[Rfam]
RNA sequence: GCAGACUCACUCUGCACCUGGCUGCAACCCCAGACAGGUGCUUUUUCUGUCUGCCAAAGAAAUAUUCCAGGGUGCUGUGACCGCUCUGACCUGUUGGGCAAUGCAGCUGCCUUGGGACACAGCA
Numbered sequence: 001g002c003a004g005a006c007u008c009a010c011u012c013u014g015c016a017c018c019u020g021g022c023u024g025c026a027a028c029c030c031c032a033g034a035c036a037g038g039u040g041c042u043u044u045u046u047c048u049g050u051c052u053g054c055c056a057a058a059g060a061a062a063u064a065u066u067c068c069a070g071g072g073u074g075c076u077g078u079g080a081c082c083g084c085u086c087u088g089a090c091c092u093g094u095u096g097g098g099c100a101a102u103g104c105a106g107c108u109g110c111c112u113u114g115g116g117a118c119a120c121a122g123c124a
Base pairs, nucleotide, nucleotide: 001054002053003052004051005050006049014041015040016039017038018037019036020035022033023032024031067115068114069113070112071111072110073109074107075106076105077104078103079102083099084098085097086096

Shown here is a 124-nucleotide RNA from Nannospalax galili, a member of the family "Small nucleolar RNA SNORA77". Rfam's curators write: ACA63 (SNORA77) is a member of the H/ACA class of snoRNAs that guide the sites of modification of uridines to pseudouridines. This snoRNA was identified by computational screening and its expression in mouse experimentally verified by Northern blot and primer extension analysis. ACA63 is proposed to guide the pseudouridylation of 18S rRNA U814. A reference for the family is Schattner et al. (2006), "A computational screen for mammalian pseudouridylation guide H/ACA RNAs", RNA. Rfam classes the family as an H/ACA-box small nucleolar RNA.